Small nucleolar RNA GlsR23: a 149-nucleotide RNA from Giardia duodenalis. The base pairs follow the family's consensus structure, which was predicted with WAR.
RNA sequence: GACUUAGAUACUGACAUACUGCAGCUGCGAUAAAAAAUCGUCUGGCCGCCUCGUGCCUACGAUGGGCUAGGGAAAUGCCGUGACGAGACACGCACUGGGUGGCCAUUGCGUCUGCGGUAGAUCCGCCGAUUCCACAGCCCAGAAACACC
Number, nucleotide and partner (000 for none) at each position: 001g000002a000003c000004u000005u000006a000007g000008a000009u000010a000011c000012u000013g000014a000015c000016a000017u000018a118019c117020u116021g115022c114023a113024g112025c000026u000027g000028c000029g000030a000031u000032a000033a000034a000035a000036a000037a000038u086039c085040g084041u083042c082043u000044g000045g078046c000047c000048g000049c000050c000051u000052c000053g000054u000055g067056c066057c065058u064059a000060c000061g000062a000063u000064g058065g057066g056067c055068u000069a000070g000071g000072g000073a000074a000075a000076u000077g000078c045079c000080g000081u000082g042083a041084c040085g039086a038087g000088a000089c000090a000091c000092g000093c000094a000095c000096u000097g000098g000099g000100u000101g000102g000103c000104c000105a000106u000107u000108g000109c000110g000111u000112c024113u023114g022115c021116g020117g019118u018119a000120g000121a000122u000123c000124c000125g000126c000127c000128g000129a000130u000131u000132c000133c000134a000135c000136a000137g000138c000139c000140c000141a000142g000143a000144a000145a000146c000147a000148c000149c000